[Rfam]
RNA: Archaeal small subunit ribosomal RNA, nucleotides 501 to 858
Organism: Thermoplasmatales archaeon E-plasma
RNA sequence: AGCCUAAAGCGUUUGUAGCCGGAUCCGUAAAUCUCCAGGAAAAUUCCUUCGCUCAACGAAGGACCUUCUGGAGAGACUGCGGAUCUAGGGACCGGGUGAGGUUGAAUGUACUUCUGGGGUAGGGGUAAAAUCCUGUAAUCCUGGAAGGACGACCGGUGGCGAAGGCGUUCAACUAGAACGGAUCCGACGGUGAGGAACGAGGGCUAGGGGAGCAAACCGGAUUAGAUACCCGGGUAGUCCUAGCUGUAAACACUGCCCACUUGAUGUUGCAUCUCCGUGUAGGGGGUGCAGUGUCGUAGCGAAGGUGUUAAGUGGGCCGCUUGGGGAGUAUGGUCGCAAGGCUGAAACUUAAAGGAAU
Numbered sequence: 001a002g003c004c005u006a007a008a009g010c011g012u013u014u015g016u017a018g019c020c021g022g023a024u025c026c027g028u029a030a031a032u033c034u035c036c037a038g039g040a041a042a043a044u045u046c047c048u049u050c051g052c053u054c055a056a057c058g059a060a061g062g063a064c065c066u067u068c069u070g071g072a073g074a075g076a077c078u079g080c081g082g083a084u085c086u087a088g089g090g091a092c093c094g095g096g097u098g099a100g101g102u103u104g105a106a107u108g109u110a111c112u113u114c115u116g117g118g119g120u121a122g123g124g125g126u127a128a129a130a131u132c133c134u135g136u137a138a139u140c141c142u143g144g145a146a147g148g149a150c151g152a153c154c155g156g157u158g159g160c161g162a163a164g165g166c167g168u169u170c171a172a173c174u175a176g177a178a179c180g181g182a183u184c185c186g187a188c189g190g191u192g193a194g195g196a197a198c199g200a201g202g203g204c205u206a207g208g209g210g211a212g213c214a215a216a217c218c219g220g221a222u223u224a225g226a227u228a229c230c231c232g233g234g235u236a237g238u239c240c241u242a243g244c245u246g247u248a249a250a251c252a253c254u255g256c257c258c259a260c261u262u263g264a265u266g267u268u269g270c271a272u273c274u275c276c277g278u279g280u281a282g283g284g285g286g287u288g289c290a291g292u293g294u295c296g297u298a299g300c301g302a303a304g305g306u307g308u309u310a311a312g313u314g315g316g317c318c319g320c321u322u323g324g325g326g327a328g329u330a331u332g333g334u335c336g337c338a339a340g341g342c343u344g345a346a347a348c349u350u351a352a353a354g355g356a357a358u
Stems, first nucleotide, its partner, number of pairs: 001321003009318001011198004016192001018191003022085007030078001032074009045063007089185003092181003097176001100174007107151002111147008122133003159166002203244006212238002217233004255317006263295014299306002323350003332343004